[Rfam]
RNA sequence: AUAGCUGAAUUGUUGGCUAUGUGGUUUUAUGGGGCCCGAUAAUCUUUCUAAUCGCCAAACUUGAAGAAGAUUAUCGGGGUUUUCACUU
Numbered sequence: 001a002u003a004g005c006u007g008a009a010u011u012g013u014u015g016g017c018u019a020u021g022u023g024g025u026u027u028u029a030u031g032g033g034g035c036c037c038g039a040u041a042a043u044c045u046u047u048c049u050a051a052u053c054g055c056c057a058a059a060c061u062u063g064a065a066g067a068a069g070a071u072u073a074u075c076g077g078g079g080u081u082u083u084c085a086c087u088u
Stems, first nucleotide, its partner, number of pairs: 001020005029088001031086001033082002035078012
Shown here is an 88-nucleotide sequence, a member of the family "CopA-like RNA". For this family Rfam cites "Post-transcriptional control of expression of the repA gene of plasmid R1 mediated by a small RNA molecule" (Light and Molin, EMBO J, 1983). Its family is annotated with mRNA binding in the Gene Ontology. By type it is an antisense RNA. Rfam's curators put it in the seed alignment. Rfam describes the family as follows. In several groups of bacterial plasmids, antisense RNAs regulate copy number through inhibition of replication initiator protein synthesis.